[Rfam]
RNA sequence: CUCUUAUGGAGAGUGGCGGAGGGACUGGCCCGAUGAUGCCACGGCAACCGGUGCAAUGCACGGCGGUGCCAAAUCCUGCAGCUUUCGCUGAGAAAUGAGAG
Numbered sequence: 001c002u003c004u005u006a007u008g009g010a011g012a013g014u015g016g017c018g019g020a021g022g023g024a025c026u027g028g029c030c031c032g033a034u035g036a037u038g039c040c041a042c043g044g045c046a047a048c049c050g051g052u053g054c055a056a057u058g059c060a061c062g063g064c065g066g067u068g069c070c071a072a073a074u075c076c077u078g079c080a081g082c083u084u085u086c087g088c089u090g091a092g093a094a095a096u097g098a099g100a101g
Stems, first nucleotide, its partner, number of pairs: 001101007013042005021031003025078001027076002043070004048066002051061003074093001079090004